[Rfam]
RNA sequence: AUCAUUUAAGGCAAUGAUGUCUGCCUCGAACCGCUUCUUAAUUGAAUGCUGAUGACGUCUAACAUUGA
Numbered sequence: 001a002u003c004a005u006u007u008a009a010g011g012c013a014a015u016g017a018u019g020u021c022u023g024c025c026u027c028g029a030a031c032c033g034c035u036u037c038u039u040a041a042u043u044g045a046a047u048g049c050u051g052a053u054g055a056c057g058u059c060u061a062a063c064a065u066u067g068a
Stems, first nucleotide, its partner, number of pairs: 010025004016059006033049002036046001
RNA: Fluoride riboswitch aptamer (crcB RNA motif)
Organism: Myroides marinus